[Rfam]
RNA sequence: AAAUACAUUUUAAUAUUUUCUCGUAUAAUAAUGGAGAUAUGGUCCAAAAGUUUCUACCAAACCACCGUAAAUGGUUUGACUACGGGGUGAUGAAUAGUUGAA
Numbered sequence: 001a002a003a004u005a006c007a008u009u010u011u012a013a014u015a016u017u018u019u020c021u022c023g024u025a026u027a028a029u030a031a032u033g034g035a036g037a038u039a040u041g042g043u044c045c046a047a048a049a050g051u052u053u054c055u056a057c058c059a060a061a062c063c064a065c066c067g068u069a070a071a072u073g074g075u076u077u078g079a080c081u082a083c084g085g086g087g088u089g090a091u092g093a094a095u096a097g098u099u100g101a102a
Stems, first nucleotide, its partner, number of pairs: 019087007029049001032046004058078007

The family of this 102-nucleotide RNA from Alkaliphilus peptidifermentans is "Purine riboswitch aptamer".
The organism belongs to Alkaliphilus peptidifermentans, within Bacteria.
Riboswitches are metabolite binding domains within certain messenger RNAs that serve as precision sensors for their corresponding targets.